[Rfam]
RNA sequence: GGCGCGGCUAGGUUUGGCCGCCGAAGAGCCCGGACCGCACUGGGUCUGCCGCGCCAUCCUCAUUGCGG
Numbered sequence: 001g002g003c004g005c006g007g008c009u010a011g012g013u014u015u016g017g018c019c020g021c022c023g024a025a026g027a028g029c030c031c032g033g034a035c036c037g038c039a040c041u042g043g044g045u046c047u048g049c050c051g052c053g054c055c056a057u058c059c060u061c062a063u064u065g066c067g068g
Stems, first nucleotide, its partner, number of pairs: 001055008011022003028045005036068001

The family of this 68-nucleotide sequence from Methylobacterium durans is "int-alpA RNA". The match comes from Rfam's covariance-model search (39 bits). The base pairs follow the family's consensus structure, which is taken from published work. NCBI's taxonomy places the organism under Bacteria, Pseudomonadati, Pseudomonadota, Hyphomicrobiales, Methylobacterium. By type it is a small RNA.